RNA: small nucleolar RNA snR94
RNA sequence: UUAUUGCAACCUUCUAAUAACUUUACAUCUUCUUAUCCAAAGAAGAAGGGUUAGAAUGUACCGUGUUUUACGGAAGUUCCAUUCCCGUAGGGUUACAAUGUGUUGCUAGAAUAAACCGUAAGUCAUAGUACAUAUAGAGGCCAAUUCUGUAAACUUUUUUAAAGUCUAUGGAAAACCCUCUAUGUGUCUCCAAUAGAGAACGGACAUCUC
Numbered sequence: 001u002u003a004u005u006g007c008a009a010c011c012u013u014c015u016a017a018u019a020a021c022u023u024u025a026c027a028u029c030u031u032c033u034u035a036u037c038c039a040a041a042g043a044a045g046a047a048g049g050g051u052u053a054g055a056a057u058g059u060a061c062c063g064u065g066u067u068u069u070a071c072g073g074a075a076g077u078u079c080c081a082u083u084c085c086c087g088u089a090g091g092g093u094u095a096c097a098a099u100g101u102g103u104u105g106c107u108a109g110a111a112u113a114a115a116c117c118g119u120a121a122g123u124c125a126u127a128g129u130a131c132a133u134a135u136a137g138a139g140g141c142c143a144a145u146u147c148u149g150u151a152a153a154c155u156u157u158u159u160u161a162a163a164g165u166c167u168a169u170g171g172a173a174a175a176c177c178c179u180c181u182a183u184g185u186g187u188c189u190c191c192a193a194u195a196g197a198g199a200a201c202g203g204a205c206a207u208c209u210c
Stems, first nucleotide, its partner, number of pairs: 006106005020093007048086003054079004061073005116203004130187011145173007153165004